[Rfam]
Group II catalytic intron D1-D4-6: a 234-nucleotide RNA sequence from Schaedlerella arabinosiphila. Rfam links the family to the GO term Group II intron splicing. A search with the family's covariance model found it, with a score of 128 bits. Pairs were carried over by alignment from the consensus structure.
RNA sequence: AGAAUCCUGUCAGGUAAGGUUUAGCCAACCGCCUGUACCGAGUCCUUGGAGUCGAAGCGGUAACGUCAGACUUAAGCGUAGGACAGGGAGCAACAGAGCCGAAACGAAAGUGAAGUGAUUGAGCUGGGAAAUAGAUAUAGGGUUGGAAAUGGUCGAUGCGCUUACAUACGUAGCAGACAACACCCUUAUGACCGAUAGGGCGAGGGAAUAAGGGCAUCCCCCAGUCUGAGAGCU
Numbered sequence: 001a002g003a004a005u006c007c008u009g010u011c012a013g014g015u016a017a018g019g020u021u022u023a024g025c026c027a028a029c030c031g032c033c034u035g036u037a038c039c040g041a042g043u044c045c046u047u048g049g050a051g052u053c054g055a056a057g058c059g060g061u062a063a064c065g066u067c068a069g070a071c072u073u074a075a076g077c078g079u080a081g082g083a084c085a086g087g088g089a090g091c092a093a094c095a096g097a098g099c100c101g102a103a104a105c106g107a108a109a110g111u112g113a114a115g116u117g118a119u120u121g122a123g124c125u126g127g128g129a130a131a132u133a134g135a136u137a138u139a140g141g142g143u144u145g146g147a148a149a150u151g152g153u154c155g156a157u158g159c160g161c162u163u164a165c166a167u168a169c170g171u172a173g174c175a176g177a178c179a180a181c182a183c184c185c186u187u188a189u190g191a192c193c194g195a196u197a198g199g200g201c202g203a204g205g206g207a208a209u210a211a212g213g214g215c216a217u218c219c220c221c222c223a224g225u226c227u228g229a230g231a232g233c234u
Stems, first nucleotide, its partner, number of pairs: 011035004018030004022203001024201002038087002042084001044082003047078002049073005056066001058065002120228001121226001123225006145219003150216002152178003157172004183214007192205002